[Rfam]
RNA: Metazoan signal recognition particle RNA
Organism: Furnarius figulus
Nucleotides: 298
Base pairs, nucleotide, nucleotide: 001045002044003043004023005022006021007020008019009018010017011016028042029041030040047296048295049294050293051292052291053290054289055288058285060283061282066275067274068273069272070271071270072269077268078267079266081264082263083262084261085260086259087258088257089256092254093253094252095251097249101248102247103246104245105244106243107242108241109237110236113234114233115232116231118228119227120226121225122224123223124222125221126220127166128165129164130163132161133160134159135158137156138155139154140153141152143150144149167173168172175218176217177216178215179214185210186209187208188207193202194201195200
Number, partner (000 for none) and nucleotide at each position: 001045g002044c003043c004023g005022g006021g007020c008019a009018c010017g011016g012000u013000g014000g015000c016011u017010u018009g019008u020007g021006c022005c023004u024000g025000u026000a027000a028042u029041c030040c031000a032000a033000g034000c035000u036000c037000c038000g039000g040030g041029g042028a043003g044002g045001c046000u047296g048295a049294g050293g051292c052291u053290g054289g055288g056000g057000a058285c059000g060283g061282c062000g063000g064000g065000a066275g067274c068273c069272c070271g071270g072269g073000g074000g075000u076000u077268c078267u079266g080000g081264g082263c083262u084261g085260c086259g087258g088257g089256g090000c091000g092254c093253u094252g095251u096000g097249c098000c099000g100000a101248g102247c103246g104245g105244g106243c107242g108241u109237c110236c111000g112000g113234g114233c115232u116231g117000a118228g119227a120226c121225c122224g123223c124222c125221a126220c127166c128165g129164g130163u131000a132161u133160g134159g135158u136000g137156g138155c139154c140153c141152c142000g143150g144149g145000g146000g147000a148000g149144c150143c151000g152141g153140g154139g155138g156137c157000a158135a159134c160133c161132a162000g163130g164129u165128c166127g167173c168172c169000u170000a171000a172168g173167g174000a175218g176217g177216g178215g179214u180000g181000a182000a183000c184000c185210g186209g187208c188207c189000c190000a191000g192000g193202u194201c195200g196000g197000a198000c199000a200195c201194g202193g203000a204000g205000c206000a207188g208187g209186u210185c211000a212000a213000a214179g215178c216177u217176c218175c219000c220126g221125u222124g223123g224122c225121g226120g227119u228118c229000a230000g231116u232115a233114g234113c235000g236110g237109g238000a239000u240000c241108g242107c243106g244105c245104c246103u247102g248101u249097g250000a251095a252094c253093g254092g255000a256089c257088c258087c259086u260085g261084c262083g263082g264081c265000a266079c267078a268077g269072c270071c271070c272069g273068g274067g275066u276000g277000a278000c279000a280000g281000a282061g283060c284000g285058g286000g287000a288055c289054c290053c291052a292051g293050c294049c295048u296047c297000u298000u